[Rfam]
RNA sequence: CUCACAUUAAUGAAGUCCGCAGUGUAAAAGCUGCUUGCAGAAAACUGUGGAUGGAUGUGUGUGGUGAG
Numbered sequence: 001c002u003c004a005c006a007u008u009a010a011u012g013a014a015g016u017c018c019g020c021a022g023u024g025u026a027a028a029a030g031c032u033g034c035u036u037g038c039a040g041a042a043a044a045c046u047g048u049g050g051a052u053g054g055a056u057g058u059g060u061g062u063g064g065u066g067a068g
Base pairs, nucleotide, nucleotide: 001068002067003066004065005064015052016051017050018049019048020047021046022045023044031040032039033038